Shown here is an 84-nucleotide sequence from Sporomusa termitida, a member of the family "c-di-GMP-I riboswitch aptamer". GEMM was predicted in a large-scale screen for bacterial structured RNA regulatory elements.
RNA sequence: AAUAAUCUUAUGCAAACUUAUUGAAAGAUAAGGACGCAAAGCUAUGGGUCUACGUACUUUGUAUAUGACUGCCAGGUUGCACCU
Numbered sequence: 001a002a003u004a005a006u007c008u009u010a011u012g013c014a015a016a017c018u019u020a021u022u023g024a025a026a027g028a029u030a031a032g033g034a035c036g037c038a039a040a041g042c043u044a045u046g047g048g049u050c051u052a053c054g055u056a057c058u059u060u061g062u063a064u065a066u067g068a069c070u071g072c073c074a075g076g077u078u079g080c081a082c083c084u
Stems, first nucleotide, its partner, number of pairs: 012037002017032006040078004045074003048069003055063003